The record is a 119-nucleotide sequence from Alligator mississippiensis, which matches "Small nucleolar RNA SNORA26" in Rfam. The match comes from Rfam's covariance-model search (100 bits).

RNA sequence: UUGCCCUCUUAAGGCUGUCUGUGUCUUAAGUGGCCAACACAGAGGGGUAUAGUAAUCCUCUCUGAAACCCAGAGGUGAGCUUUAAAACUCUGCUUUGGAUCCUGUCUGGAGGGACAAAU
Numbered sequence: 001u002u003g004c005c006c007u008c009u010u011a012a013g014g015c016u017g018u019c020u021g022u023g024u025c026u027u028a029a030g031u032g033g034c035c036a037a038c039a040c041a042g043a044g045g046g047g048u049a050u051a052g053u054a055a056u057c058c059u060c061u062c063u064g065a066a067a068c069c070c071a072g073a074g075g076u077g078a079g080c081u082u083u084a085a086a087a088c089u090c091u092g093c094u095u096u097g098g099a100u101c102c103u104g105u106c107u108g109g110a111g112g113g114a115c116a117a118a119u
Base pairs, nucleotide, nucleotide: 002049003048004047005046006045007044009042010041014038016036017035019030056113058111059110060109061108069098070097071096072095073094074093077090078089079088081087082086

The literature on the family includes a 2001 paper in EMBO J by Huttenhofer et al., "RNomics: an experimental approach that identifies 201 candidates for novel, small, non-messenger RNAs in mouse".
NCBI's taxonomy places the organism under Eukaryota, Deuterostomia, Euteleostomi, Dipnotetrapodomorpha, Alligator.
The snoRNA HBI-6 belong to the H/ACA family of snoRNAs, guiding the pseudouridylation of position U4522 if the 28S rRNA. HBI-6 is the human orthologue of mouse MBI-6 snoRNA.
Pairs were carried over by alignment from the consensus structure, which was predicted with RNAalifold.
It is annotated as an H/ACA-box small nucleolar RNA.